Source information:
A member of the RNA family "tRNA", 67 nucleotides long. Its family is annotated with triplet codon-amino acid adaptor activity in the Gene Ontology.

[Rfam]
RNA sequence: GUCUUGAUAGUAUAAACAUUACUCUGGUCUUGUAAACCUGAAAUGAAGAUCUUCUCUUCUCAAGACA
Numbered sequence: 001g002u003c004u005u006g007a008u009a010g011u012a013u014a015a016a017c018a019u020u021a022c023u024c025u026g027g028u029c030u031u032g033u034a035a036a037c038c039u040g041a042a043a044u045g046a047a048g049a050u051c052u053u054c055u056c057u058u059c060u061c062a063a064g065a066c067a
Stems, first nucleotide, its partner, number of pairs: 001066007010022003024040001026038003045059004